The record is a 102-nucleotide sequence from Robertmurraya siralis, which matches "Purine riboswitch aptamer" in Rfam. A search with the family's covariance model found it, with a score of 85 bits. The family's consensus secondary structure is taken from published work.
RNA sequence: AAAUGAAUAAGUGCAUUCACUCAUAUAAUCGCGGGGAUAUGGCCUGCAAGUUUCUACCAGUGUACCGUAAAUAUACUGACUAUGGGUGAGCAAUGGGGAUAA
Number, nucleotide and partner (000 for none) at each position: 001a000002a000003a000004u000005g000006a000007a000008u000009a000010a000011g000012u000013g000014c000015a000016u000017u000018c088019a087020c086021u085022c084023a083024u082025a081026u000027a000028a000029u049030c000031g047032c046033g045034g044035g043036g000037a000038u000039a000040u000041g000042g000043c035044c034045u033046g032047c031048a000049a029050g000051u000052u000053u000054c000055u000056a000057c000058c078059a077060g076061u075062g074063u073064a072065c000066c000067g000068u000069a000070a000071a000072u064073a063074u062075a061076c060077u059078g058079a000080c000081u025082a024083u023084g022085g021086g020087u019088g018089a000090g000091c000092a000093a000094u000095g000096g000097g000098g000099a000100u000101a000102a000